Rfam assigns this 117-nucleotide sequence from Aliiroseovarius crassostreae to the family "ALIL pseudoknot". Taxonomically the source falls in Aliiroseovarius (Bacteria, Pseudomonadati, Pseudomonadota, Alphaproteobacteria).
RNA sequence: UGCUUAUUUUGCACAGGCGGAGCUCGACCGCCCAUUCCGCAAAUGAUUGCCUUCAUCAAAGAUCAUCGCGGGGCGCAUGGGGUCGAGCCGAUCUGUAGAGUUCUCCAGAUUGCCCCU
Numbered sequence: 001u002g003c004u005u006a007u008u009u010u011g012c013a014c015a016g017g018c019g020g021a022g023c024u025c026g027a028c029c030g031c032c033c034a035u036u037c038c039g040c041a042a043a044u045g046a047u048u049g050c051c052u053u054c055a056u057c058a059a060a061g062a063u064c065a066u067c068g069c070g071g072g073g074c075g076c077a078u079g080g081g082g083u084c085g086a087g088c089c090g091a092u093c094u095g096u097a098g099a100g101u102u103c104u105c106c107a108g109a110u111u112g113c114c115c116c117u
Base pairs, nucleotide, nucleotide: 016032017031018030019029020028079116080115081114082113089112090111092109093108094107095106097104098103

The family's consensus secondary structure is taken from published work.